[Rfam]
RNA sequence: CUGUCCCCUAGAGUUCCCUUGAGCACUUCACUGGAACUUCUAUGAAACCCUAGAUUAAUGAUCAGGGCAUAUCAAUAGGCCACUGAAGUGUUUGGGGGAACUCUGGUUGCCAU
Numbered sequence: 001c002u003g004u005c006c007c008c009u010a011g012a013g014u015u016c017c018c019u020u021g022a023g024c025a026c027u028u029c030a031c032u033g034g035a036a037c038u039u040c041u042a043u044g045a046a047a048c049c050c051u052a053g054a055u056u057a058a059u060g061a062u063c064a065g066g067g068c069a070u071a072u073c074a075a076u077a078g079g080c081c082a083c084u085g086a087a088g089u090g091u092u093u094g095g096g097g098g099a100a101c102u103c104u105g106g107u108u109g110c111c112a113u
Stems, first nucleotide, its partner, number of pairs: 005109001008106002011103010022093002024090007032082003
This 113-nucleotide RNA sequence from Trema andersonii belongs to the Rfam family "mir-395 microRNA precursor family". For this family Rfam cites "Computational Identification of Plant MicroRNAs and Their Targets, Including a Stress-Induced miRNA" (Jones-Rhoades and Bartel, Mol Cell, 2004). The family's consensus secondary structure was predicted with PFOLD. The family has 25 seed sequences and 2,798 matches in Rfam 15.1. From the family's description: mir-395 was identified in both Arabidopsis thaliana and Oryza sativa computationally and was later experimentally verified. mir-395 is thought to target mRNAs coding for ATP sulphurylases. The mature sequence is excised from the 3' arm of the hairpin.